[Rfam]
RNA sequence: UGUCGUUCAAGGCACAACAUCCGAAAGGGUGUGUCGCAAAGCCAGAGGGUCUAAGCCCUGAAGGGGGUAUGACAGCCGUGCUGCCGAC
Numbered sequence: 001u002g003u004c005g006u007u008c009a010a011g012g013c014a015c016a017a018c019a020u021c022c023g024a025a026a027g028g029g030u031g032u033g034u035c036g037c038a039a040a041g042c043c044a045g046a047g048g049g050u051c052u053a054a055g056c057c058c059u060g061a062a063g064g065g066g067g068u069a070u071g072a073c074a075g076c077c078g079u080g081c082u083g084c085c086g087a088c
Stems, first nucleotide, its partner, number of pairs: 012037002017032006040082003047077002049073003056067004
The family of this 88-nucleotide RNA from Sulfobacillus acidophilus is "c-di-GMP-I riboswitch aptamer".
Its family is annotated with cyclic-di-GMP binding in the Gene Ontology.
The source organism's lineage runs through Bacteria, Bacillota, Clostridia, Sulfobacillus and Sulfobacillus acidophilus.
The match comes from Rfam's covariance-model search (70 bits).